RNA sequence: AGGAGGAACAACCCCAGUGGCGGCGGCCAGCUCCGGAGCCCUGGAGUCAGCUCCCGCAGUAACUAGGAGCUCUACGUCCGCAGGGCCUGGAGGCUCCGGGGCGGG
Numbered sequence: 001a002g003g004a005g006g007a008a009c010a011a012c013c014c015c016a017g018u019g020g021c022g023g024c025g026g027c028c029a030g031c032u033c034c035g036g037a038g039c040c041c042u043g044g045a046g047u048c049a050g051c052u053c054c055c056g057c058a059g060u061a062a063c064u065a066g067g068a069g070c071u072c073u074a075c076g077u078c079c080g081c082a083g084g085g086c087c088u089g090g091a092g093g094c095u096c097c098g099g100g101g102c103g104g105g
Stems, first nucleotide, its partner, number of pairs: 002097004009089002012085003019078004025073002029071006037064001041059003
The family of this 105-nucleotide sequence from Nyctereutes procyonoides is "mir-8834 microRNA precursor family". Its family is annotated with miRNA-mediated post-transcriptional gene silencing and RISC complex in the Gene Ontology. The family has 2 seed sequences and 13,926 matches in Rfam 15.1.